[Rfam]
RNA sequence: GAGCCAGCUUAGCCCAGCAGUUCCAUUGACCAACACAUUGGUUGGAUCCUCCGAUCGCUUCCGGUGGUUUGAGACCUGCGGGUGCUGCCUGGCUUUUUA
Number, nucleotide and partner (000 for none) at each position: 001g000002a094003g093004c092005c091006a090007g089008c000009u000010u000011a000012g083013c082014c081015c080016a000017g079018c078019a077020g076021u000022u000023c000024c000025a000026u072027u071028g070029a069030c000031c000032a000033a000034c000035a000036c000037a000038u000039u000040g000041g000042u000043u000044g000045g000046a000047u000048c000049c000050u000051c000052c000053g000054a000055u000056c000057g000058c000059u000060u000061c000062c000063g000064g000065u000066g000067g000068u000069u029070u028071g027072a026073g000074a000075c000076c020077u019078g018079c017080g015081g014082g013083u012084g000085c000086u000087g000088c000089c007090u006091g005092g004093c003094u002095u000096u000097u000098u000099a000
This 99-nucleotide RNA from Podarcis lilfordi belongs to the Rfam family "Vault RNA". The literature on the family includes a 2009 paper in Mol Biol Evol by Stadler et al., "Evolution of Vault RNAs". The match comes from Rfam's covariance-model search (58 bits).